[Rfam]
RNA sequence: AAAUAAGGAACUUCUACUAAAACCGCAUACGUCCUGUGUACAACGUAGAAGCCGCCGCAUCCUGCGGA
Numbered sequence: 001a002a003a004u005a006a007g008g009a010a011c012u013u014c015u016a017c018u019a020a021a022a023c024c025g026c027a028u029a030c031g032u033c034c035u036g037u038g039u040a041c042a043a044c045g046u047a048g049a050a051g052c053c054g055c056c057g058c059a060u061c062c063u064g065c066g067g068a
Stems, first nucleotide, its partner, number of pairs: 011051007027039004055067004
A member of the RNA family "Bacillaceae-1 RNA" from Alteribacillus bidgolensis, 68 nucleotides long.
It scores 58 bits against the family's covariance model.
Rfam classes the family as a small RNA.